[Rfam]
RNA sequence: UAUAAUGCUUUGCGAUAUUAUUGGUUUUUUAUGCUGGUUUAAUCCAAAGGGAGUAUCACUGCAUUCGCGGCAAGGAUUAUUGCCCGGUAUCAAUAAGGGCGUAAAAAAAGCGCCCGCAGGCGCUUUUAAAAGAAG
Dot-bracket structure: ...........................................................((......)).....................................((((((((....)))))))).........
This 135-nucleotide sequence from Klebsiella pneumoniae belongs to the Rfam family "Enterobacteria sRNA STnc130". Rfam classes the family as a small RNA. It scores 117 bits against the family's covariance model.